Source information:
The family of this 69-nucleotide sequence from Tetracentron sinense is "Plastid-clpP 5UTR RNA". NCBI's taxonomy places the organism under Eukaryota, Viridiplantae, Euphyllophyta, Spermatophyta, Tetracentron. The literature on the family includes a 2023 paper in Plant Commun by Richter et al., "Retrograde signaling in plants: A critical review focusing on the GUN pathway and beyond". The family's RNA type in Rfam is cis-regulatory element. Plastid clpP is a non-coding RNA (ncRNA) recognised in plastids. It was found in the prime untranslated region (5UTR) of a protease complex subunit (clpP) in plastids, suggesting a posible cis-regulatory function.

RNA sequence: AAUUAUGUUCAUAGGAACAAAGAGAAGUAGAUCUAUUCUAUUCCUGAUAAGUACCAAUACACAAUGGGG
Numbered sequence: 001a002a003u004u005a006u007g008u009u010c011a012u013a014g015g016a017a018c019a020a021a022g023a024g025a026a027g028u029a030g031a032u033c034u035a036u037u038c039u040a041u042u043c044c045u046g047a048u049a050a051g052u053a054c055c056a057a058u059a060c061a062c063a064a065u066g067g068g069g
Stems, first nucleotide, its partner, number of pairs: 003022002006019005043068003051060003